[Rfam]
The record is a 179-nucleotide sequence from Nonomuraea wenchangensis, which matches "M-box riboswitch aptamer (ykoK leader)" in Rfam.
RNA sequence: GGGAUCGAUGGAGACGUCGGGAGCACGUCCGGAUACAGGCCGCUGACCCGACGACGUCGAGAGACGCCCAGGGUCAGGACACCUCUCCCCGGCUUAAGAGGUGAGGCCAAGCGGCUUCCCGCACGAUCUUCGCGGGCAUACGCCGGGCAGUGCCGAAGCUCUUACGAGAUGUGGGGUGC
Numbered sequence: 001g002g003g004a005u006c007g008a009u010g011g012a013g014a015c016g017u018c019g020g021g022a023g024c025a026c027g028u029c030c031g032g033a034u035a036c037a038g039g040c041c042g043c044u045g046a047c048c049c050g051a052c053g054a055c056g057u058c059g060a061g062a063g064a065c066g067c068c069c070a071g072g073g074u075c076a077g078g079a080c081a082c083c084u085c086u087c088c089c090c091g092g093c094u095u096a097a098g099a100g101g102u103g104a105g106g107c108c109a110a111g112c113g114g115c116u117u118c119c120c121g122c123a124c125g126a127u128c129u130u131c132g133c134g135g136g137c138a139u140a141c142g143c144c145g146g147g148c149a150g151u152g153c154c155g156a157a158g159c160u161c162u163u164a165c166g167a168g169a170u171g172u173g174g175g176g177u178g179c
Base pairs, nucleotide, nucleotide: 005175006174008172009171010170011165016159017158020154021153027148028147029146030145031144032143039115040114041113042112043111045075046074047073048072049071055066056065057064058063082106083105084104085103088100090098117138119136
M-box riboswitch, also know as ykoK leader is described as a metaloregulatory RNA that sense divalent metals and function as a genetic control element of genes related to divalent metal transport in bacteria.